[Rfam]
Rfam assigns this 117-nucleotide RNA from Duganella sp. Leaf126 to the family "ALIL pseudoknot". The family's consensus secondary structure is taken from published work. It scores 109 bits against the family's covariance model. By type it is a cis-regulatory element.
RNA sequence: CGCGUUUUUCGCCCAGGCGGAGCUCGACCGUCGCUUCAAGUCGUGAGAACGUUCAUCGACCAGCACCGCCAAGCGUAUGGGGUCGAGUCGAUUUGCAAAGUCUUGCAGAUCGCCCCG
Numbered sequence: 001c002g003c004g005u006u007u008u009u010c011g012c013c014c015a016g017g018c019g020g021a022g023c024u025c026g027a028c029c030g031u032c033g034c035u036u037c038a039a040g041u042c043g044u045g046a047g048a049a050c051g052u053u054c055a056u057c058g059a060c061c062a063g064c065a066c067c068g069c070c071a072a073g074c075g076u077a078u079g080g081g082g083u084c085g086a087g088u089c090g091a092u093u094u095g096c097a098a099a100g101u102c103u104u105g106c107a108g109a110u111c112g113c114c115c116c117g
Stems, first nucleotide, its partner, number of pairs: 016032005078117005089112002092109007